The record is a 308-nucleotide sequence from Arabidopsis lyrata, which matches "Plant signal recognition particle RNA" in Rfam.
NCBI's taxonomy places the organism under Eukaryota, Mesangiospermae, rosids, Brassicales, Arabidopsis lyrata.
A reference for the family is Wild et al. (2002), "Towards the structure of the mammalian signal recognition particle", Curr Opin Struct Biol.
RNA sequence: GUCGAGCUCAGUAACUCGGGCUUGUGAUCCAAGUGGAGACAAUAGGGUGAUGGGACGUUGGGUCGAUCUUAUUGGGCCGGGUUCGGGGUAGGCUAUGUUCUGGCCCGCCCAUUCCAAGUUGGGAGUCGAGGUAUGGACUUUGAGCGAAGGCUUGGAUCUCAUGUCUUCUAGAGUGGGGGGAGACUGCAUGAGGCUGGUUUCAAAGAGCAUCGUCCACCUCCCGCUCUUGACGGUGGAAGGAUUACAGGCCAUUGCCUUCCGAACCCACUAUGACCCAAUAAGCCGACUCCGAUUGGACCAUCACUUUU
Numbered sequence: 001g002u003c004g005a006g007c008u009c010a011g012u013a014a015c016u017c018g019g020g021c022u023u024g025u026g027a028u029c030c031a032a033g034u035g036g037a038g039a040c041a042a043u044a045g046g047g048u049g050a051u052g053g054g055a056c057g058u059u060g061g062g063u064c065g066a067u068c069u070u071a072u073u074g075g076g077c078c079g080g081g082u083u084c085g086g087g088g089u090a091g092g093c094u095a096u097g098u099u100c101u102g103g104c105c106c107g108c109c110c111a112u113u114c115c116a117a118g119u120u121g122g123g124a125g126u127c128g129a130g131g132u133a134u135g136g137a138c139u140u141u142g143a144g145c146g147a148a149g150g151c152u153u154g155g156a157u158c159u160c161a162u163g164u165c166u167u168c169u170a171g172a173g174u175g176g177g178g179g180g181a182g183a184c185u186g187c188a189u190g191a192g193g194c195u196g197g198u199u200u201c202a203a204a205g206a207g208c209a210u211c212g213u214c215c216a217c218c219u220c221c222c223g224c225u226c227u228u229g230a231c232g233g234u235g236g237a238a239g240g241a242u243u244a245c246a247g248g249c250c251a252u253u254g255c256c257u258u259c260c261g262a263a264c265c266c267a268c269u270a271u272g273a274c275c276c277a278a279u280a281a282g283c284c285g286a287c288u289c290c291g292a293u294u295g296g297a298c299c300a301u302c303a304c305u306u307u308u
Base pairs, nucleotide, nucleotide: 001040002039003038004023005022006021007020008019009018011016028037029036030035044307045306046305047304048303049302050301051300052299053298056295057294058292059291060290061288062287063286064285065284068282069281070280071279072278073277075275076274078272079266080265081264082263083262084261085260086259088258090257091256092255094254095253101251102250103249104248105247107245109240110239112238113237114236115235116234118231119230120229121228122227123226124225125224126223128167129166130165131164132163133162134161135160136159139156140155141154142153143152144151145150168173175222176221177220178219179218180217186213187212194205195204